[Rfam]
Small nucleolar RNA Z157/R69/R10: a 103-nucleotide RNA sequence from Artemisia annua. Lineage of the source: Eukaryota > Streptophyta > asterids > Asteraceae > Artemisia. The literature on the family includes a 2003 paper in Nucleic Acids Res by Chen et al., "The high diversity of snoRNAs in plants: identification and comparative study of 120 snoRNA genes from Oryza sativa". Gene Ontology terms of the family: nucleolus and RNA processing. Clan: SNORD52 clan. The family has 10 seed sequences and 836 matches in Rfam 15.1.
RNA sequence: AUUUGUGCGGUGAUGAAGCAUAUUGUGGACUAGAGUUUCUGAUCUUGGGCUCUUCUUCCCAUUAAAGUUUGACGACAAAACCCUUGGCUGUCUGAGCACAUUU
Number, nucleotide and partner (000 for none) at each position: 001a103002u000003u000004u100005g099006u098007g097008c096009g000010g000011u000012g000013a000014u000015g000016a000017a000018g000019c000020a000021u000022a000023u000024u000025g000026u000027g000028g000029a000030c000031u000032a000033g000034a000035g000036u074037u000038u072039c071040u000041g000042a000043u067044c000045u065046u064047g063048g062049g000050c000051u000052c000053u000054u000055c000056u000057u000058c000059c000060c000061a000062u048063u047064a046065a045066a000067g043068u000069u000070u000071g039072a038073c000074g036075a000076c000077a000078a000079a000080a000081c000082c000083c000084u000085u000086g000087g000088c000089u000090g000091u000092c000093u000094g000095a000096g008097c007098a006099c005100a004101u000102u000103u001